[Rfam]
RNA sequence: ACCCAGACUAAGUCCAGGAAUACGAUGGCUUGGAACUGGAUGGGCCACGUGCUUAACCAGUUCAAGAUCUCCUUCUCUCCAACACUGUGCCAGCUCAUGACUCUCAUGACCCAUGAUUAGAAAGAUCUGGACCAGGAGUGAGAGGACCUCUGACUUUGCCAACCACCACUAA
Number, nucleotide and partner (000 for none) at each position: 001a000002c000003c000004c000005a000006g000007a000008c000009u000010a000011a170012g169013u168014c000015c000016a000017g164018g163019a000020a000021u000022a000023c000024g000025a157026u000027g155028g000029c000030u153031u152032g151033g150034a149035a000036c000037u000038g000039g000040a000041u000042g000043g000044g000045c000046c087047a086048c000049g000050u000051g000052c136053u135054u134055a000056a000057c000058c000059a000060g073061u000062u000063c000064a000065a000066g000067a000068u000069c000070u000071c000072c000073u060074u125075c124076u123077c000078u121079c120080c000081a000082a000083c000084a000085c000086u047087g046088u000089g000090c000091c000092a000093g000094c000095u109096c108097a107098u106099g105100a104101c000102u000103c000104u100105c099106a098107u097108g096109a095110c145111c144112c000113a000114u141115g000116a139117u138118u137119a000120g079121a078122a000123a076124g075125a074126u000127c000128u000129g000130g000131a000132c000133c000134a054135g053136g052137a118138g117139u116140g000141a114142g000143a000144g111145g110146a000147c000148c000149u034150c033151u032152g031153a030154c000155u027156u000157u025158g000159c000160c000161a000162a000163c018164c017165a000166c000167c000168a013169c012170u011171a000172a000

This 172-nucleotide RNA from Panthera pardus belongs to the Rfam family "Hovlinc ribozyme (hominin vlincRNA-located)". A reference for the family is Chen et al. (2021), "Hovlinc is a recently evolved class of ribozyme found in human lncRNA", Nat Chem Biol. The family's consensus secondary structure is taken from published work. Lineage of the source: Eukaryota > Eumetazoa > Dipnotetrapodomorpha > Pantherinae > Panthera. From the family's description: Hovlinc is a recently evolved class of self-cleaving ribozyme found in a very long non coding RNA (vlincRNA) in hominins, including humans (genus Homo), and chimpanzees and bonobos (genus Pan), but missing in gorillas (genus Gorilla). Its family is annotated with catalytic activity in the Gene Ontology.